[Rfam]
RNA sequence: AGACGUCCACACGGGGGCCCUGAGAAGGGCUGAGAUCGAGCUGAGGCUCGGGACCGUUGAACCUGAUCCGGUUGAUACCGGCGUAGGAAGUGAGGAGCACAGCUAU
Numbered sequence: 001a002g003a004c005g006u007c008c009a010c011a012c013g014g015g016g017g018c019c020c021u022g023a024g025a026a027g028g029g030c031u032g033a034g035a036u037c038g039a040g041c042u043g044a045g046g047c048u049c050g051g052g053a054c055c056g057u058u059g060a061a062c063c064u065g066a067u068c069c070g071g072u073u074g075a076u077a078c079c080g081g082c083g084u085a086g087g088a089a090g091u092g093a094g095g096a097g098c099a100c101a102g103c104u105a106u
Base pairs, nucleotide, nucleotide: 006094008092009091010090011057012056013055014054017030018029019028020027021026037050038049039048040047041046062087063086064085065084068081069080070079071078